[Rfam]
RNA sequence: GCCCCUGUGGCCCAAUGGUCAGGGCACCAGACUUCUACACUGCUACCAAGGAUUGUACUAUCUGGGGAUUGCGGGUUCGAGUCCCGCCAGGGGUU
Numbered sequence: 001g002c003c004c005c006u007g008u009g010g011c012c013c014a015a016u017g018g019u020c021a022g023g024g025c026a027c028c029a030g031a032c033u034u035c036u037a038c039a040c041u042g043c044u045a046c047c048a049a050g051g052a053u054u055g056u057a058c059u060a061u062c063u064g065g066g067g068a069u070u071g072c073g074g075g076u077u078c079g080a081g082u083c084c085c086g087c088c089a090g091g092g093g094u095u
Base pairs, nucleotide, nucleotide: 001094002093003092004091005090006089007088010025011024012023013022027065028064029063030062031061071087072086073085074084075083
Rfam assigns this 95-nucleotide RNA from Hirsutella rhossiliensis to the family "tRNA". The family is grouped with related families in Rfam's "tRNA clan". Taxonomically the source falls in Hirsutella (Eukaryota, saccharomyceta, sordariomyceta, Ophiocordycipitaceae). By type it is a transfer RNA.